[Rfam]
RNA sequence: CAGAGCUACAGGGCUUAGUUCACUGGUGAACAGAGCGAUACAUCUCCCCAUGUUCACAGUGGCUAAGUUCCGCUGCUCUG
Numbered sequence: 001c002a003g004a005g006c007u008a009c010a011g012g013g014c015u016u017a018g019u020u021c022a023c024u025g026g027u028g029a030a031c032a033g034a035g036c037g038a039u040a041c042a043u044c045u046c047c048c049c050a051u052g053u054u055c056a057c058a059g060u061g062g063c064u065a066a067g068u069u070c071c072g073c074u075g076c077u078c079u080g
Stems, first nucleotide, its partner, number of pairs: 011070010026057007
Notes: Shown here is an 80-nucleotide RNA from Polypterus senegalus, a member of the family "mir-27 microRNA precursor family". Its family is annotated with RISC complex and miRNA-mediated post-transcriptional gene silencing in the Gene Ontology. Lineage of the source: Eukaryota > Metazoa > Vertebrata > Polypteridae > Polypterus. A search with the family's covariance model found it, with a score of 70 bits. The literature on the family includes a 2005 paper in Genes Dev by Chen et al., "The developmental miRNA profiles of zebrafish as determined by small RNA cloning".